[Rfam]
RNA sequence: GUCACUGUAUGAUCUACUCUGGUUAAAUCCUUACAUGCCAGCCAGGGUGGUGAUGAUCUGUGAC
Numbered sequence: 001g002u003c004a005c006u007g008u009a010u011g012a013u014c015u016a017c018u019c020u021g022g023u024u025a026a027a028u029c030c031u032u033a034c035a036u037g038c039c040a041g042c043c044a045g046g047g048u049g050g051u052g053a054u055g056a057u058c059u060g061u062g063a064c
Stems, first nucleotide, its partner, number of pairs: 001064005014050010029037001031035001
RNA: Selenocysteine insertion sequence 1